Shown here is a 176-nucleotide RNA sequence from Enterococcus canis, a member of the family "Enterococcus sRNA 2410". Produced as 2 transcripts on Northern blot. The source organism's lineage runs through Bacteria, Bacillota, Bacilli, Enterococcaceae and Enterococcus. A search with the family's covariance model found it, with a score of 99 bits.
RNA sequence: UUAGCUAUUUUAGAUAGUUUGUACUUAUCCAUCGAUAGGUACAAACAGCAAAGAACUUUGCUUUGUAUCUAUGAUGGCUAGAGCACUUGCUGUUGCAGCCGCGUAGACGAUACUCUAAGUGGCUAUGUAACAGGACCCUAUUCUCUUGAUCCUUAACGUCCAUUUAGACUGUCGUC
Number, nucleotide and partner (000 for none) at each position: 001u081002u080003a079004g078005c077006u076007a075008u000009u000010u000011u071012a070013g069014a068015u067016a066017g046018u045019u044020u043021g042022u041023a040024c039025u038026u037027a036028u035029c000030c000031a000032u000033c000034g000035a028036u027037a026038g025039g024040u023041a022042c021043a020044a019045a018046c017047a000048g000049c065050a064051a063052a062053g061054a000055a000056c000057u000058u000059u000060g000061c053062u052063u051064u050065g049066u016067a015068u014069c013070u012071a011072u000073g000074a000075u007076g006077g005078c004079u003080a002081g001082a000083g000084c000085a000086c134087u133088u132089g000090c000091u000092g131093u130094u129095g000096c000097a124098g123099c122100c121101g120102c119103g000104u117105a116106g115107a000108c000109g000110a000111u000112a000113c000114u000115c106116u105117a104118a000119g102120u101121g100122g099123c098124u097125a000126u000127g000128u000129a094130a093131c092132a088133g087134g086135a159136c158137c000138c000139u155140a154141u000142u000143c000144u000145c000146u000147u000148g000149a000150u000151c000152c000153u000154u140155a139156a000157c000158g136159u135160c000161c000162a000163u000164u000165u000166a000167g000168a000169c000170u000171g000172u000173c000174g000175u000176c000